[Rfam]
RNA sequence: UGGGUCGGUGAGACGGUCGCGUCGCUCCCCCGGGAGCGCCGAGGAACGUCCGGGCUCCACAGAGCAGGGCGGUGGGUAACACCCACCCGGAGCAAUCCGCGAGACAGUGCCACAGAGAACAGACCGCCGGCGGCAACGUCGGUAAGGGUGAAACGGUGGUGUAAGAGACCACCAGGGGUCCGGGUGACCGGAUCCGCUCGGUAAACCUCGCCCGGAGCAAGGUCAGACAGAGGACGCUGAGGCUGCUCGCCGAGUCCUCGGGUAGACCGCUGGAGGCCGACGGCAACGUCGGUCCGAGAGAGAUGGCCGUCACCGCCGCGAGAGCGACGGGACAGAACCCGGCGUACGGCCGGCCCAUUCG
Numbered sequence: 001u002g003g004g005u006c007g008g009u010g011a012g013a014c015g016g017u018c019g020c021g022u023c024g025c026u027c028c029c030c031c032g033g034g035a036g037c038g039c040c041g042a043g044g045a046a047c048g049u050c051c052g053g054g055c056u057c058c059a060c061a062g063a064g065c066a067g068g069g070c071g072g073u074g075g076g077u078a079a080c081a082c083c084c085a086c087c088c089g090g091a092g093c094a095a096u097c098c099g100c101g102a103g104a105c106a107g108u109g110c111c112a113c114a115g116a117g118a119a120c121a122g123a124c125c126g127c128c129g130g131c132g133g134c135a136a137c138g139u140c141g142g143u144a145a146g147g148g149u150g151a152a153a154c155g156g157u158g159g160u161g162u163a164a165g166a167g168a169c170c171a172c173c174a175g176g177g178g179u180c181c182g183g184g185u186g187a188c189c190g191g192a193u194c195c196g197c198u199c200g201g202u203a204a205a206c207c208u209c210g211c212c213c214g215g216a217g218c219a220a221g222g223u224c225a226g227a228c229a230g231a232g233g234a235c236g237c238u239g240a241g242g243c244u245g246c247u248c249g250c251c252g253a254g255u256c257c258u259c260g261g262g263u264a265g266a267c268c269g270c271u272g273g274a275g276g277c278c279g280a281c282g283g284c285a286a287c288g289u290c291g292g293u294c295c296g297a298g299a300g301a302g303a304u305g306g307c308c309g310u311c312a313c314c315g316c317c318g319c320g321a322g323a324g325c326g327a328c329g330g331g332a333c334a335g336a337a338c339c340c341g342g343c344g345u346a347c348g349g350c351c352g353g354c355c356c357a358u359u360c361g
Stems, first nucleotide, its partner, number of pairs: 001357009010347001012311007020041002023038006046345003050342005055217004062248004067213005072086005087101001088099004102208002107206002109202003124147002126143007155173006175197001176195008221268004230259006241251003275294008